[Rfam]
RNA: small nucleolar RNA snoR135
Organism: Thalictrum thalictroides
RNA sequence: AAAGCAAGAUUAUGUUUAUGGAUGCAGUGCUCUAAUCAAUGCACUUCUAGUUGAAAGAUCUUCUUGCGAUACCAAAUUUUGGGGAAGGUAGGCAGUUCCGCAGUUGUAUAUCACUUUUGGGUUGAAAUUUCAAUAAUCAUUUUCCCCACAUCA
Numbered sequence: 001a002a003a004g005c006a007a008g009a010u011u012a013u014g015u016u017u018a019u020g021g022a023u024g025c026a027g028u029g030c031u032c033u034a035a036u037c038a039a040u041g042c043a044c045u046u047c048u049a050g051u052u053g054a055a056a057g058a059u060c061u062u063c064u065u066g067c068g069a070u071a072c073c074a075a076a077u078u079u080u081g082g083g084g085a086a087g088g089u090a091g092g093c094a095g096u097u098c099c100g101c102a103g104u105u106g107u108a109u110a111u112c113a114c115u116u117u118u119g120g121g122u123u124g125a126a127a128u129u130u131c132a133a134u135a136a137u138c139a140u141u142u143u144c145c146c147c148a149c150a151u152c153a
Stems, first nucleotide, its partner, number of pairs: 004067005009061001014044002017041003081147009091137001103134004